Notes
The family of this 74-nucleotide RNA sequence from Pieris brassicae is "mir-970 microRNA precursor family".
RNA sequence: CAAGGCGAGCCCGGCGUGUGAUCUUAUUGGUAGUGUGAAGGUAAUCUAUCAUAAGACACACGCGGCUCUCUCUG
Numbered sequence: 001c002a003a004g005g006c007g008a009g010c011c012c013g014g015c016g017u018g019u020g021a022u023c024u025u026a027u028u029g030g031u032a033g034u035g036u037g038a039a040g041g042u043a044a045u046c047u048a049u050c051a052u053a054a055g056a057c058a059c060a061c062g063c064g065g066c067u068c069u070c071u072c073u074g
Stems, first nucleotide, its partner, number of pairs: 001074002004071002008067004014063003019058002022056003028051005
Lineage of the source: Eukaryota > Panarthropoda > Endopterygota > Obtectomera > Pieris.